[Rfam]
RNA sequence: UCGGGCUGGUCACCCCAGCCUGAUCACCUCUACUCCGGUACCUGGUACGGCCGGAGAG
Numbered sequence: 001u002c003g004g005g006c007u008g009g010u011c012a013c014c015c016c017a018g019c020c021u022g023a024u025c026a027c028c029u030c031u032a033c034u035c036c037g038g039u040a041c042c043u044g045g046u047a048c049g050g051c052c053g054g055a056g057a058g
Stems, first nucleotide, its partner, number of pairs: 001023009028058002033056007